[Rfam]
RNA sequence: GCCGGUCCUCGGUAGUGGCGGGCGGGGCCCUGCGAUCGAUCCGGGCCCGACCGCUUCGAUCGAAGACCGGC
Dot-bracket structure: (((((((.(((((...(((((.((((.(((............))))))).)))))...))))).)))))))
RNA: Actino-pnp RNA
Organism: Jatrophihabitans endophyticus